The record is a 135-nucleotide RNA sequence from Anaerobacillus isosaccharinicus, which matches "Ribosomal protein L10 leader" in Rfam.
RNA sequence: UGAAUUGAAUAGUUCAUACCGUAGACAGUAGGAGCGUUUAAACGCUUAAUUUCCUACCGAGGUUUGUUAAAUGAUGAUCUAAUCACUAUAACAAAAGCCUCCGUGUGUCUGCAUGGAGGCUUUUCCUAUAGAAGG
Numbered sequence: 001u002g003a004a005u006u007g008a009a010u011a012g013u014u015c016a017u018a019c020c021g022u023a024g025a026c027a028g029u030a031g032g033a034g035c036g037u038u039u040a041a042a043c044g045c046u047u048a049a050u051u052u053c054c055u056a057c058c059g060a061g062g063u064u065u066g067u068u069a070a071a072u073g074a075u076g077a078u079c080u081a082a083u084c085a086c087u088a089u090a091a092c093a094a095a096a097g098c099c100u101c102c103g104u105g106u107g108u109c110u111g112c113a114u115g116g117a118g119g120c121u122u123u124u125c126c127u128a129u130a131g132a133a134g135g
Stems, first nucleotide, its partner, number of pairs: 028057006034045003097120010
Background: Gene Ontology term of the family: regulation of gene expression. A search with the family's covariance model found it, with a score of 88 bits. Pairs were carried over by alignment from the consensus structure, which was predicted with CMfinder. From the family's description: This family is a putative r-protein leader autoregulatory structure found in B. subtilis and other low-GC Gram-positive bacteria. It is located in the 5' untranslated regions of mRNAs encoding ribosomal proteins L10 and L12 (rplJ-rplL). A Rho-independent transcription terminator structure that is probably involved in regulation is included at the 3' end.